[Rfam]
RNA sequence: AUUGCUUGGUUUACAUCGUGGGUUCAGUGAAUAAGCCCCGCGUAAUGGGGCUUUUUUGUAUCUUAACCACGUAAAAAGGUGCAAUAGCAGCAAGGUAUAUCGCUGGGCUUUAUGCCCUUUUUUU
Numbered sequence: 001a002u003u004g005c006u007u008g009g010u011u012u013a014c015a016u017c018g019u020g021g022g023u024u025c026a027g028u029g030a031a032u033a034a035g036c037c038c039c040g041c042g043u044a045a046u047g048g049g050g051c052u053u054u055u056u057u058g059u060a061u062c063u064u065a066a067c068c069a070c071g072u073a074a075a076a077a078g079g080u081g082c083a084a085u086a087g088c089a090g091c092a093a094g095g096u097a098u099a100u101c102g103c104u105g106g107g108c109u110u111u112a113u114g115c116c117c118u119u120u121u122u123u124u
Base pairs, nucleotide, nucleotide: 033053034052035051036050037049038048039047040046105117106116107115108114
Description
Gammaprotebacteria rimP leader: a 124-nucleotide sequence from Colwellia sp. C1TZA3. The base pairs follow the family's consensus structure, which is taken from published work. For this family Rfam cites "Premature terminator analysis sheds light on a hidden world of bacterial transcriptional attenuation" (Naville and Gautheret, Genome Biol, 2010). Gene Ontology term of the family: regulation of gene expression. The organism belongs to Colwellia, within Bacteria.